The record is an 81-nucleotide RNA from Streptomyces sp. CNT372, which matches "nrdJ RNA" in Rfam. It is annotated as a small RNA. Taxonomically the source falls in Streptomyces (Bacteria, Actinomycetota, Actinomycetes, Streptomycetaceae). The base pairs follow the family's consensus structure, which is taken from published work. Rfam's curators put it in the seed alignment.
RNA sequence: ACCUGUUCCGGGCGCUGUGAGCGACGCCCGGGACGACAGAAACACAUGUGCCCAGGGAAGACAUGGGCACUCCAGGGCGUU
Dot-bracket structure: ...(((((((((((.((....)).)))))))))))............(((((((.........)))))))...........